Background: Rfam assigns this 130-nucleotide RNA from Heterocephalus glaber to the family "Small nucleolar RNA SNORA44". From the family's description: ACA44 is a member of the H/ACA class of snoRNA that guide the sites of modification of uridines to pseudouridines. Rfam links the family to the GO terms RNA processing and nucleolus. Rfam classes the family as an H/ACA-box small nucleolar RNA. The base pairs follow the family's consensus structure, which was predicted with PFOLD. Rfam 15.1 lists 1,056 matches to the family in 599 species. Its Rfam clan is "SNORA44 clan". NCBI's taxonomy places the organism under Eukaryota, Eumetazoa, Teleostomi, Glires, Heterocephalus.
[Rfam]
RNA sequence: CAGCAUAUUUCCAAGGACUGUGACUGGUUGCAGCCAAGGAUCCCCAGUCACACACAAGAGUAAUGUGAAGAAACUUUGGCAGCUCAGGUCAACCCAAUACCUGCAGCUACCGCUCACCUUUCAUAUAAUG
Numbered sequence: 001c002a003g004c005a006u007a008u009u010u011c012c013a014a015g016g017a018c019u020g021u022g023a024c025u026g027g028u029u030g031c032a033g034c035c036a037a038g039g040a041u042c043c044c045c046a047g048u049c050a051c052a053c054a055c056a057a058g059a060g061u062a063a064u065g066u067g068a069a070g071a072a073a074c075u076u077u078g079g080c081a082g083c084u085c086a087g088g089u090c091a092a093c094c095c096a097a098u099a100c101c102u103g104c105a106g107c108u109a110c111c112g113c114u115c116a117c118c119u120u121u122c123a124u125a126u127a128a129u130g
Base pairs, nucleotide, nucleotide: 011039012038016035018033019032020031021030022029069121070120071119082110085103086102087101088100